[Rfam]
RNA sequence: AUACAGUAAGGUGAUGAGGUUCCACCUAUAACUGCCAUUUUUUUUAAAAAAAUCUGGAUGAUGACUUCUACUAUCAA
Numbered sequence: 001a002u003a004c005a006g007u008a009a010g011g012u013g014a015u016g017a018g019g020u021u022c023c024a025c026c027u028a029u030a031a032c033u034g035c036c037a038u039u040u041u042u043u044u045u046a047a048a049a050a051a052a053u054c055u056g057g058a059u060g061a062u063g064a065c066u067u068c069u070a071c072u073a074u075c076a077a
Base pairs, nucleotide, nucleotide: 010026011025012024013023016068017067018066019065020064021063035057036056037055
RNA: Fluoride riboswitch aptamer (crcB RNA motif)